Description: Shown here is a 130-nucleotide RNA sequence from Desulfoscipio geothermicus, a member of the family "Molybdenum/Tungsten riboswitch aptamer (Moco RNA motif)". The base pairs follow the family's consensus structure, which is taken from published work.

RNA sequence: UAAUAAUAUUUCCUCCGAGUCCUUUAACCUAAGGCGCUCAAGAUAUAUUGGCUAUGGUUUUUGGACCGGUAGGGUGCAGGGGGAAACGCCUGUGCCUCCCGAUGCGGAAAGGAGGUGGUACGGUUGAUUU
Numbered sequence: 001u002a003a004u005a006a007u008a009u010u011u012c013c014u015c016c017g018a019g020u021c022c023u024u025u026a027a028c029c030u031a032a033g034g035c036g037c038u039c040a041a042g043a044u045a046u047a048u049u050g051g052c053u054a055u056g057g058u059u060u061u062u063g064g065a066c067c068g069g070u071a072g073g074g075u076g077c078a079g080g081g082g083g084a085a086a087c088g089c090c091u092g093u094g095c096c097u098c099c100c101g102a103u104g105c106g107g108a109a110a111g112g113a114g115g116u117g118g119u120a121c122g123g124u125u126g127a128u129u130u
Stems, first nucleotide, its partner, number of pairs: 003124002012115005019066004026059004033053003072097009082087001098107002